[Rfam]
RNA sequence: AGCGGGUAUAGAGGUUGCAAAGACGAUCAGUAUGUAAGUGAGACGUGAUUAAGCACGGUUGACCAUUUACAAAAAGGAGGCUUUGCCGAAGUGAUGUUAGACUUAAAACUAACAGCGCUGGUGUAGCGUUUAAGAAAUGCUAUGUUGUCAUAUAGUAAAUCUAUAUGGAGGGCUAACUCAACA
Number, nucleotide and partner (000 for none) at each position: 001a000002g000003c000004g000005g000006g178007u000008a000009u175010a174011g173012a000013g000014g000015u000016u000017g086018c085019a084020a083021a082022g081023a000024c079025g000026a000027u000028c000029a000030g000031u000032a000033u071034g070035u069036a068037a067038g000039u065040g064041a000042g000043a000044c000045g000046u000047g000048a000049u000050u000051a000052a000053g000054c000055a000056c000057g000058g000059u000060u000061g000062a000063c000064c040065a039066u000067u037068u036069a035070c034071a033072a000073a000074a000075a000076g000077g000078a000079g024080g000081c022082u021083u020084u019085g018086c017087c000088g000089a000090a119091g118092u117093g116094a000095u114096g113097u112098u111099a110100g109101a000102c000103u000104u000105a000106a000107a000108a000109c100110u099111a098112a097113c096114a095115g000116c093117g092118c091119u090120g146121g145122u144123g143124u142125a141126g140127c139128g138129u137130u136131u000132a000133a000134g000135a000136a130137a129138u128139g127140c126141u125142a124143u123144g122145u121146u120147g000148u168149c167150a166151u165152a164153u163154a162155g000156u000157a000158a000159a000160u000161c000162u154163a153164u152165a151166u150167g149168g148169a000170g000171g000172g000173c011174u010175a009176a000177c000178u006179c000180a000181a000182c000183a000